A member of the RNA family "Interferon gamma 5' UTR regulatory element" from Hipposideros armiger, 175 nucleotides long. Its family is annotated with positive regulation of translation in the Gene Ontology. The literature on the family includes a 2002 paper in Cell by Ben-Asouli et al., "Human interferon-gamma mRNA autoregulates its translation through a pseudoknot that activates the interferon-inducible protein kinase PKR". The match comes from Rfam's covariance-model search (124 bits). It is annotated as a cis-regulatory element.
[Rfam]
RNA sequence: ACUUUUUCUGAUCAUCUGCAGAUCGGCUAUUAGAAGAGAAAGAUCCCCUAAGUCCUUCGGACCUGAUCAACUUAAUACAGGAGCUACUGACACUGACUUCAUCAACUUCGGCUUAACUCUUGCCAAAACAAUGAAUUAUACAAGUUAUAUUUUAGCUUUUCAGCUUUGCGUGAUU
Numbered sequence: 001a002c003u004u005u006u007u008c009u010g011a012u013c014a015u016c017u018g019c020a021g022a023u024c025g026g027c028u029a030u031u032a033g034a035a036g037a038g039a040a041a042g043a044u045c046c047c048c049u050a051a052g053u054c055c056u057u058c059g060g061a062c063c064u065g066a067u068c069a070a071c072u073u074a075a076u077a078c079a080g081g082a083g084c085u086a087c088u089g090a091c092a093c094u095g096a097c098u099u100c101a102u103c104a105a106c107u108u109c110g111g112c113u114u115a116a117c118u119c120u121u122g123c124c125a126a127a128a129c130a131a132u133g134a135a136u137u138a139u140a141c142a143a144g145u146u147a148u149a150u151u152u153u154a155g156c157u158u159u160u161c162a163g164c165u166u167u168g169c170g171u172g173a174u175u
Base pairs, nucleotide, nucleotide: 009069010068011067012066013065014064015126018123019122020120021119022118025113026112027111028110032107033106036103041099042098044096045095051085052084053083056081057080059078127175128174131171132170133169137149138148139147140146154165155164156163157162